The family of this 95-nucleotide RNA from Sphingobacterium paucimobilis is "TPP riboswitch aptamer (THI element)".
RNA sequence: AAAAUACUUUAGGGGUGUCUGCAAGGCAGGCUGAGAUUUUACCCUUGGAACCUGAUCUAGUUCAUACUAGCGUAGGGAAAAGUAAGUGUAUCUUU
Numbered sequence: 001a002a003a004a005u006a007c008u009u010u011a012g013g014g015g016u017g018u019c020u021g022c023a024a025g026g027c028a029g030g031c032u033g034a035g036a037u038u039u040u041a042c043c044c045u046u047g048g049a050a051c052c053u054g055a056u057c058u059a060g061u062u063c064a065u066a067c068u069a070g071c072g073u074a075g076g077g078a079a080a081a082g083u084a085a086g087u088g089u090a091u092c093u094u095u
Base pairs, nucleotide, nucleotide: 006083007082008081009080010079011045012044013043014042017031018030019029020028021027051076052075053074054073057070058069059068060067

Rfam links the family to the GO term thiamine pyrophosphate binding. Taxonomically the source falls in Sphingobacterium paucimobilis (Bacteria, Pseudomonadati, Sphingobacteriales, Sphingobacteriaceae). A search with the family's covariance model found it, with a score of 81 bits.